The record is a 56-nucleotide sequence from Synaphobranchus kaupii, which matches "UnaL2 LINE 3' element" in Rfam. The family's consensus secondary structure is taken from published work.

RNA sequence: GUCUUAAAAGGUUGUCUAAGUCGCUCUGGAUAAGAGCGUCUGCUAAAUGCCUGUAA
Numbered sequence: 001g002u003c004u005u006a007a008a009a010g011g012u013u014g015u016c017u018a019a020g021u022c023g024c025u026c027u028g029g030a031u032a033a034g035a036g037c038g039u040c041u042g043c044u045a046a047a048u049g050c051c052u053g054u055a056a
Stems, first nucleotide, its partner, number of pairs: 013045001014043001017042002022038006
Dot-bracket structure: ............((..((...((((((.....))))))..))).)...........
From the family's description: The eel long interspersed element (LINE) UnaL2 and its partner short interspersed element (SINE) share a conserved 3' tail containing a stem-loop that is critical for their retrotransposition. Presumably, the first step of retrotransposition is the recognition of their 3' tails by UnaL2-encoded reverse transcriptase. The solution structure of a 17-nucleotide RNA derived from the 3' tail of UnaL2 was determined by NMR. It scores 60 bits against the family's covariance model. For this family Rfam cites "Solution structure of an RNA stem-loop derived from the 3' conserved region of eel LINE UnaL2" (Baba et al., RNA, 2004).